Rfam assigns this 72-nucleotide sequence from Ceratitis capitata to the family "mir-965 microRNA precursor family". The literature on the family includes a 2012 paper in Bioorg Khim by Huang et al., "The regulation of silkworm fibroin L chain production by miRNA-965 and miRNA-1926 in insect cells". The organism belongs to Ceratitis, within Eukaryota. The base pairs follow the family's consensus structure, which was predicted with RNAalifold.
[Rfam]
RNA sequence: CAUUUAAGGGGAAAAGCUAUACGCUUAUGAAUAUUUAAUUUAACAUAAACGCACAGCAUCACCCCUUAAAGG
Numbered sequence: 001c002a003u004u005u006a007a008g009g010g011g012a013a014a015a016g017c018u019a020u021a022c023g024c025u026u027a028u029g030a031a032u033a034u035u036u037a038a039u040u041u042a043a044c045a046u047a048a049a050c051g052c053a054c055a056g057c058a059u060c061a062c063c064c065c066u067u068a069a070a071g072g
Stems, first nucleotide, its partner, number of pairs: 003070005009064003014059001017056002020053001025048005